[Rfam]
RNA sequence: CUGGCCGUACGCGACUGGCGCGGCAAGGUGGGGCACCACCGGGGAGCGACGUCGGCCGCACCGCGCGCCUGGGUGUGGCAA
Numbered sequence: 001c002u003g004g005c006c007g008u009a010c011g012c013g014a015c016u017g018g019c020g021c022g023g024c025a026a027g028g029u030g031g032g033g034c035a036c037c038a039c040c041g042g043g044g045a046g047c048g049a050c051g052u053c054g055g056c057c058g059c060a061c062c063g064c065g066c067g068c069c070u071g072g073g074u075g076u077g078g079c080a081a
Stems, first nucleotide, its partner, number of pairs: 004053001006051003010048003015043002017069005028039004058076005
Shown here is an 81-nucleotide RNA from Actinocatenispora sera, a member of the family "ZMP/ZTP riboswitch aptamer (pfl RNA motif)".
NCBI's taxonomy places the organism under Bacteria, Bacillati, Actinomycetota, Micromonosporales, Actinocatenispora.
The family's consensus secondary structure is taken from published work.
It scores 43 bits against the family's covariance model.